[Rfam]
The record is a 111-nucleotide sequence from Otolemur garnettii, which matches "Y RNA" in Rfam. The source organism's lineage runs through Eukaryota, Eumetazoa, Theria, Euarchontoglires and Otolemur. The family's RNA type in Rfam is non-coding RNA gene.
RNA sequence: GGCUGGUCCAAAGGCAGUGAGUUAUCUCACUUGAUCACAGUCAGUUACAGAUUGAACUUUGUUCUACUCUUUCCCCCCUUCUCUCUCACUACUGCACUUGACAAGUCUUAA
Numbered sequence: 001g002g003c004u005g006g007u008c009c010a011a012a013g014g015c016a017g018u019g020a021g022u023u024a025u026c027u028c029a030c031u032u033g034a035u036c037a038c039a040g041u042c043a044g045u046u047a048c049a050g051a052u053u054g055a056a057c058u059u060u061g062u063u064c065u066a067c068u069c070u071u072u073c074c075c076c077c078c079u080u081c082u083c084u085c086u087c088a089c090u091a092c093u094g095c096a097c098u099u100g101a102c103a104a105g106u107c108u109u110a111a
Stems, first nucleotide, its partner, number of pairs: 001107004006102003010099002014095002016090006040072001043070002